[Rfam]
RNA sequence: GAUACAAUUAAUCGCCGAGCUUUGUGUUUCUAAGCUUUUUUAGUAUGAAACCUAAGCCGUGGCUAUAAGCCACCAGGGCUAACAGGGAAACCGGUUAGCCUCCCCCUAUUUGGAAAGGUGAACAUGCUAGAAGAUA
Numbered sequence: 001g002a003u004a005c006a007a008u009u010a011a012u013c014g015c016c017g018a019g020c021u022u023u024g025u026g027u028u029u030c031u032a033a034g035c036u037u038u039u040u041u042a043g044u045a046u047g048a049a050a051c052c053u054a055a056g057c058c059g060u061g062g063c064u065a066u067a068a069g070c071c072a073c074c075a076g077g078g079c080u081a082a083c084a085g086g087g088a089a090a091c092c093g094g095u096u097a098g099c100c101u102c103c104c105c106c107u108a109u110u111u112g113g114a115a116a117g118g119u120g121a122a123c124a125u126g127c128u129a130g131a132a133g134a135u136a
Stems, first nucleotide, its partner, number of pairs: 003130001012121005019057004024052001026051005034044003059073005076101008085092002102113002
Rfam assigns this 136-nucleotide RNA from Thalassomonas sp. M1454 to the family "Molybdenum/Tungsten riboswitch aptamer (Moco RNA motif)".
Rfam 15.1 lists 1,248 matches to the family in 836 species.
The organism belongs to Thalassomonas, within Bacteria.
It scores 96 bits against the family's covariance model.